[Rfam]
RNA: Small nucleolar RNA SNORD23
Organism: Galemys pyrenaicus
RNA sequence: UGCCCGAUGAUGAUACCCAUCCUUGCUCCCCGUGCCCCGCAGGGGCUAUGGGCGACAUCAUGGCUACCCCCAAGCUGAGCCAGUGGGCUGACGCCUGGGGGCUGAGGGCA
Numbered sequence: 001u002g003c004c005c006g007a008u009g010a011u012g013a014u015a016c017c018c019a020u021c022c023u024u025g026c027u028c029c030c031c032g033u034g035c036c037c038c039g040c041a042g043g044g045g046c047u048a049u050g051g052g053c054g055a056c057a058u059c060a061u062g063g064c065u066a067c068c069c070c071c072a073a074g075c076u077g078a079g080c081c082a083g084u085g086g087g088c089u090g091a092c093g094c095c096u097g098g099g100g101g102c103u104g105a106g107g108g109c110a
Stems, first nucleotide, its partner, number of pairs: 001110005